[Rfam]
RNA sequence: UGGAAAAAGGAUAUACGACCUCAUAUAAUCAUGGGAAUAUGGCCCAGAAGUUUCUACCUGAUGACCGAGAAUCGUCAGACUAUGAGGGUGCAUGCCACGUGU
Numbered sequence: 001u002g003g004a005a006a007a008a009g010g011a012u013a014u015a016c017g018a019c020c021u022c023a024u025a026u027a028a029u030c031a032u033g034g035g036a037a038u039a040u041g042g043c044c045c046a047g048a049a050g051u052u053u054c055u056a057c058c059u060g061a062u063g064a065c066c067g068a069g070a071a072u073c074g075u076c077a078g079a080c081u082a083u084g085a086g087g088g089u090g091c092a093u094g095c096c097a098c099g100u101g102u
Stems, first nucleotide, its partner, number of pairs: 019087007029049001032046004058078007
RNA: Purine riboswitch aptamer